The record is a 103-nucleotide RNA sequence from Sporosarcina sp. HYO08, which matches "SAM riboswitch aptamer (S box leader)" in Rfam. Lineage of the source: Bacteria > Bacilli > Caryophanales > Caryophanaceae > Sporosarcina.
RNA sequence: UUCUUAUCGAGAGAAGCUGAGGGACUGGCCCGAUGAUGCUUCAGCAACCAGCCGUUCGGUCAGGUGCUAAAUCCAGGGACCUAUAACGGUCUGCAGAUAAGAA
Numbered sequence: 001u002u003c004u005u006a007u008c009g010a011g012a013g014a015a016g017c018u019g020a021g022g023g024a025c026u027g028g029c030c031c032g033a034u035g036a037u038g039c040u041u042c043a044g045c046a047a048c049c050a051g052c053c054g055u056u057c058g059g060u061c062a063g064g065u066g067c068u069a070a071a072u073c074c075a076g077g078g079a080c081c082u083a084u085a086a087c088g089g090u091c092u093g094c095a096g097a098u099a100a101g102a103a
Base pairs, nucleotide, nucleotide: 001103002102003101004100005099006098007097008096013042014041015040016039017038021031022030023029025076026075027074028073043068044067045066046065048064049063050060052058072095077092078091079090080089081088